[Rfam]
RNA sequence: AUGUUUUUCAUGGUAUUAGAUUUAAGGUUAACAAAGGUUGGGACUCGGCGGAGCCCCUUUUUUGUGC
Numbered sequence: 001a002u003g004u005u006u007u008u009c010a011u012g013g014u015a016u017u018a019g020a021u022u023u024a025a026g027g028u029u030a031a032c033a034a035a036g037g038u039u040g041g042g043a044c045u046c047g048g049c050g051g052a053g054c055c056c057c058u059u060u061u062u063u064g065u066g067c
Stems, first nucleotide, its partner, number of pairs: 040057003044053003
Dot-bracket structure: .......................................(((.(((....))).)))..........

The record is a 67-nucleotide sequence from Prevotella sp. CAG:520, which matches "Bacteroidetes FopS (family of paralogous sRNAs)" in Rfam.
From the family's description: The RNA-binding protein RbpB and BTncRNA_FopS sRNA are involved in the post-transcription regulation of polysaccharide utilisation loci (PUL). FopS sRNAs function as post-transcriptional repressors by binding to the vicinity of the start codon of the first mRNA of target PUL polycistrons, typically corresponding to the cognate SusC homolog, impeding translation of the respective glycan transporter.
On this family, see Ruttiger et al., Nat Commun 2025: "The global RNA-binding protein RbpB is a regulator of polysaccharide utilization in Bacteroides thetaiotaomicron".
The base pairs follow the family's consensus structure, which is taken from published work.
It scores 67 bits against the family's covariance model.
Rfam links the family to the GO term sRNA-mediated gene silencing.